[Rfam]
RNA sequence: ACACAAGAAAGGAGGUGGUCCGCGAAAUUGAUAGCUUCAUGGACAUGUGAGGUGGCUGCGCGCUAGCAGCAUCGGCUCGGCAGAGAAGAGCUGGCGGCCAAUGCGCGCUGGCGAAUCCACCGCAGUCACCCGGCCCCCGAGCAUCCGGUCGUGUCCGACCAGGAGCUUUGCUCGGGGGCCGCUCCAC
Numbered sequence: 001a002c003a004c005a006a007g008a009a010a011g012g013a014g015g016u017g018g019u020c021c022g023c024g025a026a027a028u029u030g031a032u033a034g035c036u037u038c039a040u041g042g043a044c045a046u047g048u049g050a051g052g053u054g055g056c057u058g059c060g061c062g063c064u065a066g067c068a069g070c071a072u073c074g075g076c077u078c079g080g081c082a083g084a085g086a087a088g089a090g091c092u093g094g095c096g097g098c099c100a101a102u103g104c105g106c107g108c109u110g111g112c113g114a115a116u117c118c119a120c121c122g123c124a125g126u127c128a129c130c131c132g133g134c135c136c137c138c139g140a141g142c143a144u145c146c147g148g149u150c151g152u153g154u155c156c157g158a159c160c161a162g163g164a165g166c167u168u169u170g171c172u173c174g175g176g177g178g179c180c181g182c183u184c185c186a187c
Stems, first nucleotide, its partner, number of pairs: 015059005061113007069104004074099003131181013145162001147160004
The record is a 187-nucleotide RNA sequence from Mycobacterium helveticum, which matches "Actinobacteria sRNA Ms_IGR-5" in Rfam. A search with the family's covariance model found it, with a score of 173 bits. The family's RNA type in Rfam is small RNA.